[Rfam]
RNA sequence: CAGGAUGGACAGGCAAUCGCGGCACAGCAAUGUGUCGAGGAAGGUCCGGACUCCAUAGGGCAGGAUAGCGGCUAACGGCCGUCCGGCGCAAGCCGAGGACUAGGGCCACAGAGACGAGUCUGAUGCGGGGGCAUGCCUGGCAUGCACGGGUACGGCCACUCCGUACCCUGCGGUCUGGCAACAGAUCGCGGCGCAUCAGGGUGAAACGCGGCAACCUCUAUCCGGAGCAACGUCAAAUAGGCAUGCGUGUGGUUUCGGCCACGCAGGGCGGCUCGCCCGAGCAUGCGGGUAGGCGGCUAGAACCGCGCGGCAACGCGCGGUCCAGAGGAAUGAUUGCCGGCCAGCGCAAGCUGGUCUACAGAAUCCGGCCUAUCGUUCAUCCUGCACC
Numbered sequence: 001c002a003g004g005a006u007g008g009a010c011a012g013g014c015a016a017u018c019g020c021g022g023c024a025c026a027g028c029a030a031u032g033u034g035u036c037g038a039g040g041a042a043g044g045u046c047c048g049g050a051c052u053c054c055a056u057a058g059g060g061c062a063g064g065a066u067a068g069c070g071g072c073u074a075a076c077g078g079c080c081g082u083c084c085g086g087c088g089c090a091a092g093c094c095g096a097g098g099a100c101u102a103g104g105g106c107c108a109c110a111g112a113g114a115c116g117a118g119u120c121u122g123a124u125g126c127g128g129g130g131g132c133a134u135g136c137c138u139g140g141c142a143u144g145c146a147c148g149g150g151u152a153c154g155g156c157c158a159c160u161c162c163g164u165a166c167c168c169u170g171c172g173g174u175c176u177g178g179c180a181a182c183a184g185a186u187c188g189c190g191g192c193g194c195a196u197c198a199g200g201g202u203g204a205a206a207c208g209c210g211g212c213a214a215c216c217u218c219u220a221u222c223c224g225g226a227g228c229a230a231c232g233u234c235a236a237a238u239a240g241g242c243a244u245g246c247g248u249g250u251g252g253u254u255u256c257g258g259c260c261a262c263g264c265a266g267g268g269c270g271g272c273u274c275g276c277c278c279g280a281g282c283a284u285g286c287g288g289g290u291a292g293g294c295g296g297c298u299a300g301a302a303c304c305g306c307g308c309g310g311c312a313a314c315g316c317g318c319g320g321u322c323c324a325g326a327g328g329a330a331u332g333a334u335u336g337c338c339g340g341c342c343a344g345c346g347c348a349a350g351c352u353g354g355u356c357u358a359c360a361g362a363a364u365c366c367g368g369c370c371u372a373u374c375g376u377u378c379a380u381c382c383u384g385c386a387c388c
Stems, first nucleotide, its partner, number of pairs: 001384010011373001012338007020037007042371003046368005051227004058274004063223005068082005083097001084095004098218002103216002105212003149167006169191001170189008231295004241286006266278004302321008